[Rfam]
RNA sequence: GUUUGUGGAUGAUGAGAAAUAAAAUUCAACAGUUAUCCCUGUCUGAUGCAUUAGUGCUGAUGAAUUUUGAUCUGACACAUGC
Numbered sequence: 001g002u003u004u005g006u007g008g009a010u011g012a013u014g015a016g017a018a019a020u021a022a023a024a025u026u027c028a029a030c031a032g033u034u035a036u037c038c039c040u041g042u043c044u045g046a047u048g049c050a051u052u053a054g055u056g057c058u059g060a061u062g063a064a065u066u067u068u069g070a071u072c073u074g075a076c077a078c079a080u081g082c
Stems, first nucleotide, its partner, number of pairs: 001082002004079004
Small nucleolar RNA R38: an 82-nucleotide RNA sequence from Kingdonia uniflora. The family's consensus secondary structure was predicted with PFOLD. Rfam describes the family as follows. snoR38 is a C/D box small nucleolar RNA conserved across yeast, human, Arabidopsis and rice. It is encoded in the intron of elongation factor-1 gamma in both pombe and cerevisiae. snoR38 guides the methylation of 2'-O-ribose sites in 28S rRNA. It is annotated as a C/D-box small nucleolar RNA. Its family is annotated with nucleolus and RNA processing in the Gene Ontology. The match comes from Rfam's covariance-model search (66 bits). The source organism's lineage runs through Eukaryota, Viridiplantae, Streptophytina, Circaeasteraceae and Kingdonia.